[Rfam]
RNA sequence: UUACUCUGGCUUCUCUUCAAUUGUCGAAUAAAUCUUUCGCCUUUUACUAAAGAUUUCCGUGGAGAGGGGCACUCUAAUGAGUCUAAACUGAAUUUUUUCAUAGUUCCUGGCGACUU
Numbered sequence: 001u002u003a004c005u006c007u008g009g010c011u012u013c014u015c016u017u018c019a020a021u022u023g024u025c026g027a028a029u030a031a032a033u034c035u036u037u038c039g040c041c042u043u044u045u046a047c048u049a050a051a052g053a054u055u056u057c058c059g060u061g062g063a064g065a066g067g068g069g070c071a072c073u074c075u076a077a078u079g080a081g082u083c084u085a086a087a088c089u090g091a092a093u094u095u096u097u098u099c100a101u102a103g104u105u106c107c108u109g110g111c112g113a114c115u116u
Stems, first nucleotide, its partner, number of pairs: 003082004009070011030056008100116001102115004
Shown here is a 116-nucleotide RNA from Drosophila pseudoobscura, a member of the family "U5 spliceosomal RNA". The source organism's lineage runs through Eukaryota, Opisthokonta, Allotriocarida, Schizophora and Drosophila pseudoobscura.